[Rfam]
The record is a 74-nucleotide sequence from Solanum commersonii, which matches "tRNA" in Rfam. A search with the family's covariance model found it, with a score of 48 bits. The base pairs follow the family's consensus structure, which is taken from published work. Rfam's curators write: Transfer RNA (tRNA) molecules are approximately 80 nucleotides in length.
RNA sequence: AGGAUUGUAGUUCAAUCGGUUAGAGUAUCGCCAUGUUAAGGUGAAAGUUGCGGGUUCGAGCCCUGUCAAUUCCA
Dot-bracket structure: .((((((..((((.........)))).(((((.......))))).....(((((.......)))))))))))..